[Rfam]
RNA sequence: UUAACUCGAAUUUGUAUGAAGUUGGAGUUUGCCGCUAGGGGCGCUGUUCCAACUGCAUACAAAUUCGAGUUA
Number, nucleotide and partner (000 for none) at each position: 001u000002u000003a000004a000005c000006u000007c000008g066009a065010a064011u063012u062013u061014g060015u059016a058017u000018g056019a000020a054021g053022u052023u051024g050025g049026a048027g047028u046029u000030u000031g000032c040033c039034g000035c000036u000037a000038g000039g033040g032041g000042c000043g000044c000045u000046g028047u027048u026049c025050c024051a023052a022053c021054u020055g000056c018057a000058u016059a015060c014061a013062a012063a011064u010065u009066c008067g000068a000069g000070u000071u000072a000